This 99-nucleotide RNA from Protaetiibacter sp. SSC-01 belongs to the Rfam family "mraW RNA".
Lineage of the source: Bacteria > Bacillati > Actinomycetota > Microbacteriaceae > Protaetiibacter.
Rfam classes the family as a cis-regulatory element.
It scores 64 bits against the family's covariance model.
RNA sequence: UUCUGACCCCCGGAUGCGACCCUCAGCCGCGCUCCCUGGCGCACCUUCCCCGGUGCCAGGUGGCGGCGGAUGGGGAUCGGAUCCGGGGGACGAGGACCA
Numbered sequence: 001u002u003c004u005g006a007c008c009c010c011c012g013g014a015u016g017c018g019a020c021c022c023u024c025a026g027c028c029g030c031g032c033u034c035c036c037u038g039g040c041g042c043a044c045c046u047u048c049c050c051c052g053g054u055g056c057c058a059g060g061u062g063g064c065g066g067c068g069g070a071u072g073g074g075g076a077u078c079g080g081a082u083c084c085g086g087g088g089g090a091c092g093a094g095g096a097c098c099a
Base pairs, nucleotide, nucleotide: 010086011085012084013083014082015081018078019077021075022074023073024072025071027069028068029067030066031064032063033062035060036059037058038057039056040055041054042053